[Rfam]
RNA sequence: AUGUUCCUUCAGGGCAGGGUGAAAGUCCCGACCGGCGGUGAUGAGGCUUACCUCUAAGUCCGCGAGCCAUUUUAAUGGCAGGAUCUAGUGAAAUUCUAGAGCCGACAGUAAAGUCUGGAUGGGAGAAGGAUGAU
Number, nucleotide and partner (000 for none) at each position: 001a000002u000003g000004u000005u130006c129007c128008u127009u126010c125011a000012g000013g000014g000015c000016a000017g029018g028019g027020u000021g000022a000023a000024a000025g000026u000027c019028c018029c017030g000031a114032c113033c104034g103035g063036c062037g061038g060039u000040g000041a000042u000043g000044a000045g000046g000047c000048u000049u000050a000051c000052c000053u000054c000055u000056a000057a000058g102059u101060c038061c037062g036063c035064g000065a000066g000067c000068c078069a000070u000071u000072u000073u000074a000075a000076u000077g000078g068079c000080a000081g000082g000083a000084u100085c099086u098087a097088g096089u000090g000091a000092a000093a000094u000095u000096c088097u087098a086099g085100a084101g059102c058103c034104g033105a000106c117107a116108g115109u000110a000111a000112a000113g032114u031115c108116u107117g106118g000119a000120u000121g000122g000123g000124a000125g010126a009127a008128g007129g006130a005131u000132g000133a000134u000
A member of the RNA family "FMN riboswitch aptamer (RFN element)" from Scopulibacillus darangshiensis, 134 nucleotides long. The match comes from Rfam's covariance-model search (118 bits). Pairs were carried over by alignment from the consensus structure, which is taken from published work. The source organism's lineage runs through Bacteria, Bacilli, Caryophanales, Sporolactobacillaceae and Scopulibacillus. Its family is annotated with FMN binding in the Gene Ontology.